[Rfam]
A member of the RNA family "ZMP/ZTP riboswitch aptamer (pfl RNA motif)" from Nocardioides acrostichi, 78 nucleotides long. Taxonomically the source falls in Nocardioides (Bacteria, Actinomycetota, Actinomycetes, Nocardioidaceae).
RNA sequence: CUGCGAGCACACGACUGGCGCAGGUGGGUGACCACCAGGGAGUGGCACGUCGCGGCAUCGAACGCCUGGGUCCGCGAC
Numbered sequence: 001c002u003g004c005g006a007g008c009a010c011a012c013g014a015c016u017g018g019c020g021c022a023g024g025u026g027g028g029u030g031a032c033c034a035c036c037a038g039g040g041a042g043u044g045g046c047a048c049g050u051c052g053c054g055g056c057a058u059c060g061a062a063c064g065c066c067u068g069g070g071u072c073c074g075c076g077a078c
Stems, first nucleotide, its partner, number of pairs: 003050003007046002010044003015039002017066004024035004055073001057071003